[Rfam]
RNA sequence: GCGCCGUCACAGGGGUGGCCAUGACGUGCAAACGUCAUUAGCCUGAGAUCCGUACCGGCAUUCGGCUGGAUUACGGGAACCCUUAGAACCUGAACCGGGUAAUACCGGCGUAGGAAGAGGAUUCCAUAAUGUA
Numbered sequence: 001g002c003g004c005c006g007u008c009a010c011a012g013g014g015g016u017g018g019c020c021a022u023g024a025c026g027u028g029c030a031a032a033c034g035u036c037a038u039u040a041g042c043c044u045g046a047g048a049u050c051c052g053u054a055c056c057g058g059c060a061u062u063c064g065g066c067u068g069g070a071u072u073a074c075g076g077g078a079a080c081c082c083u084u085a086g087a088a089c090c091u092g093a094a095c096c097g098g099g100u101a102a103u104a105c106c107g108g109c110g111u112a113g114g115a116a117g118a119g120g121a122u123u124c125c126a127u128a129a130u131g132u133a
Stems, first nucleotide, its partner, number of pairs: 007120002010117001011083004016077001017043003021039001050076005089114004095108004
RNA: TPP riboswitch aptamer (THI element)
Organism: Woeseia oceani